Shown here is a 122-nucleotide RNA from Pseudoalteromonas tunicata, a member of the family "Phenylalanine leader peptide". Gene Ontology term of the family: cellular amino acid metabolic process. The source organism's lineage runs through Bacteria, Pseudomonadati, Gammaproteobacteria, Pseudoalteromonadaceae and Pseudoalteromonas tunicata. For this family Rfam cites "Nucleotide sequence of the leader region of the phenylalanine operon of Escherichia coli" (Zurawski et al., Proc Natl Acad Sci U S A, 1978).

RNA sequence: CAAAAUCACCGUAUUUACUUUUUUAGCUUUUUUAUGGACCACCUAAAUUUGGGAGGCGAUUCCGUCACGGCAUAAAAAAGUCAAAACGAAUUCAAGCCUCCCAACCGGGAGGCUUUUUUUUU
Numbered sequence: 001c002a003a004a005a006u007c008a009c010c011g012u013a014u015u016u017a018c019u020u021u022u023u024u025a026g027c028u029u030u031u032u033u034a035u036g037g038a039c040c041a042c043c044u045a046a047a048u049u050u051g052g053g054a055g056g057c058g059a060u061u062c063c064g065u066c067a068c069g070g071c072a073u074a075a076a077a078a079a080g081u082c083a084a085a086a087c088g089a090a091u092u093c094a095a096g097c098c099u100c101c102c103a104a105c106c107g108g109g110a111g112g113c114u115u116u117u118u119u120u121u122u
Stems, first nucleotide, its partner, number of pairs: 016089001019088001021086004026081009036071001042053003055066004094115009